Overview
A member of the RNA family "Lysine riboswitch aptamer" from Lysinibacillus sp. BF-4, 176 nucleotides long. The match comes from Rfam's covariance-model search (106 bits).
RNA sequence: UUAUGAGGUAGAGGUCGCGGUAUGCAAGAGUAAGCGUGUGGAGAUGGCAAGCAUCGAUGAAACACGACGAAAGGGUACACUGCCGAAGCGUUAAUUAGCUUGCCGUAAUUAAUGCUGGGGUUGUCAUCGAAAGAGACAGAACUGUCACGCCACAAGCGUGUUGAGCUAUCAGUUGA
Numbered sequence: 001u002u003a004u005g006a007g008g009u010a011g012a013g014g015u016c017g018c019g020g021u022a023u024g025c026a027a028g029a030g031u032a033a034g035c036g037u038g039u040g041g042a043g044a045u046g047g048c049a050a051g052c053a054u055c056g057a058u059g060a061a062a063c064a065c066g067a068c069g070a071a072a073g074g075g076u077a078c079a080c081u082g083c084c085g086a087a088g089c090g091u092u093a094a095u096u097a098g099c100u101u102g103c104c105g106u107a108a109u110u111a112a113u114g115c116u117g118g119g120g121u122u123g124u125c126a127u128c129g130a131a132a133g134a135g136a137c138a139g140a141a142c143u144g145u146c147a148c149g150c151c152a153c154a155a156g157c158g159u160g161u162u163g164a165g166c167u168a169u170c171a172g173u174u175g176a
Stems, first nucleotide, its partner, number of pairs: 007170005017083005023077003035066005087116011117143002121139005127133001146160005